[Rfam]
RNA sequence: CCGGGGUCCGCGCCGUCCUGCAGUGAACCGGGGACCCACCGACGCAGCAAUGGGGUGAAUCCGCGCAAGCGGUAGGGCCUUCUUCCCGCCCGAAUCCGUCAGCUAACCCGGUAGGUGGCUCAAGCGGAAGA
Numbered sequence: 001c002c003g004g005g006g007u008c009c010g011c012g013c014c015g016u017c018c019u020g021c022a023g024u025g026a027a028c029c030g031g032g033g034a035c036c037c038a039c040c041g042a043c044g045c046a047g048c049a050a051u052g053g054g055g056u057g058a059a060u061c062c063g064c065g066c067a068a069g070c071g072g073u074a075g076g077g078c079c080u081u082c083u084u085c086c087c088g089c090c091c092g093a094a095u096c097c098g099u100c101a102g103c104u105a106a107c108c109c110g111g112u113a114g115g116u117g118g119c120u121c122a123a124g125c126g127g128a129a130g131a
Stems, first nucleotide, its partner, number of pairs: 001115002007025001027112006037052002053097003061072004075091004
Shown here is a 131-nucleotide RNA from Winogradskya consettensis, a member of the family "c-di-AMP riboswitch aptamer (ydaO/yuaA leader)". The match comes from Rfam's covariance-model search (73 bits). The literature on the family includes a 2004 paper in Proc Natl Acad Sci U S A by Barrick et al., "New RNA motifs suggest an expanded scope for riboswitches in bacterial genetic control".